Overview
Shown here is a 318-nucleotide RNA sequence from Ottowia beijingensis, a member of the family "Bacterial RNase P class A". The literature on the family includes a 1999 paper in Nucleic Acids Res by Brown, "The Ribonuclease P Database". Its family is annotated with tRNA processing, ribonuclease P activity and dimeric ribonuclease P complex in the Gene Ontology. From the family's description: Ribonuclease P (RNase P) is a ubiquitous endoribonuclease, found in archaea, bacteria and eukarya as well as chloroplasts and mitochondria. Its best characterised activity is the generation of mature 5'-ends of tRNAs by cleaving the 5'-leader elements of precursor-tRNAs. Cellular RNase Ps are ribonucleoproteins. RNA from bacterial RNase Ps retains its catalytic activity in the absence of the protein subunit, i.e. it is a ribozyme. Isolated eukaryotic and archaeal RNase P RNA has not been shown to retain its catalytic function, but is still essential for the catalytic activity of the holoenzyme. Although the archaeal and eukaryotic holoenzyme s have a much greater protein content than the bacterial ones, the RNA cores from all the three lineages are homologous -- helices corresponding to P1, P2, P3, P4, and P10/11 are common to all cellular RNase P RNAs. Yet, there is considerable sequence variation, particularly among the eukaryotic RNAs. Identified in Yersinia as Ysr151/RnpB. The family's consensus secondary structure is taken from published work.
RNA sequence: GAAGCCCGCCAGACCGCCGCUGGUGCAAGUUGGGAAACCACGCACUGGAGGAACGUCCGGACUGCACAGGGCAGCGCAGGAGCUAACGGCUCUCCACCGCGAGGUGAGGAUCAGAGCAACAGAGACGAGCCGAUUGAGUUCGGGUGAAACGGGCAAUCUCUGCGCGCAGCAACACCAAGUAGGCCAGCGAUGAGGCGGCCCGCUGAGCUGGCGGGUAGGUGGCACCGAGCCGGGUGGGCGACCCCGGCCCAGAUUGAUGGCGGUCACGUUGAGGGCAACUUCAACGCACAGAAUCCGGCGUAUCGGCGGGCUUCACAC
Numbered sequence: 001g002a003a004g005c006c007c008g009c010c011a012g013a014c015c016g017c018c019g020c021u022g023g024u025g026c027a028a029g030u031u032g033g034g035a036a037a038c039c040a041c042g043c044a045c046u047g048g049a050g051g052a053a054c055g056u057c058c059g060g061a062c063u064g065c066a067c068a069g070g071g072c073a074g075c076g077c078a079g080g081a082g083c084u085a086a087c088g089g090c091u092c093u094c095c096a097c098c099g100c101g102a103g104g105u106g107a108g109g110a111u112c113a114g115a116g117c118a119a120c121a122g123a124g125a126c127g128a129g130c131c132g133a134u135u136g137a138g139u140u141c142g143g144g145u146g147a148a149a150c151g152g153g154c155a156a157u158c159u160c161u162g163c164g165c166g167c168a169g170c171a172a173c174a175c176c177a178a179g180u181a182g183g184c185c186a187g188c189g190a191u192g193a194g195g196c197g198g199c200c201c202g203c204u205g206a207g208c209u210g211g212c213g214g215g216u217a218g219g220u221g222g223c224a225c226c227g228a229g230c231c232g233g234g235u236g237g238g239c240g241a242c243c244c245c246g247g248c249c250c251a252g253a254u255u256g257a258u259g260g261c262g263g264u265c266a267c268g269u270u271g272a273g274g275g276c277a278a279c280u281u282c283a284a285c286g287c288a289c290a291g292a293a294u295c296c297g298g299c300g301u302a303u304c305g306g307c308g309g310g311c312u313u314c315a316c317a318c
Base pairs, nucleotide, nucleotide: 001314002313003312004311005310006309007308008307009306010305011303012265013264014263015262016261017260018259020048021047022046023045024044025043026042053301054300055299057298058297059296060295061294062169063168064167065166069201070200071199072198074165075164076163077162078161079093080092081091082090083089094108095106096105097104098103109160110159114158115157116154117153130143131142132141133140173221174220175219176218183212184211185210186209187208188207194204195203196202229248230247231246232245233244236243237242